[Rfam]
RNA sequence: GGCUUUUUUCGCGGCGGAGCUCGACCGCCCACGCCGGUUCUGACGGAGUUCGUCACCGCCCACAAGGACGAGUUCGGGGUCGAGCCGAUCUGUGCCGUGCUGACCGAGCACGGCAUGAAGAUCGCCCCG
Numbered sequence: 001g002g003c004u005u006u007u008u009u010c011g012c013g014g015c016g017g018a019g020c021u022c023g024a025c026c027g028c029c030c031a032c033g034c035c036g037g038u039u040c041u042g043a044c045g046g047a048g049u050u051c052g053u054c055a056c057c058g059c060c061c062a063c064a065a066g067g068a069c070g071a072g073u074u075c076g077g078g079g080u081c082g083a084g085c086c087g088a089u090c091u092g093u094g095c096c097g098u099g100c101u102g103a104c105c106g107a108g109c110a111c112g113g114c115a116u117g118a119a120g121a122u123c124g125c126c127c128c129g
Stems, first nucleotide, its partner, number of pairs: 013029005075129005086124002089121003
Dot-bracket structure: ............(((((.......))))).............................................(((((......((.(((...........................))).)))))))

A member of the RNA family "ALIL pseudoknot" from Aeromicrobium sp. Root344, 129 nucleotides long.
Pairs were carried over by alignment from the consensus structure, which is taken from published work.
It is annotated as a cis-regulatory element.
NCBI's taxonomy places the organism under Bacteria, Actinomycetota, Propionibacteriales, Nocardioidaceae, Aeromicrobium.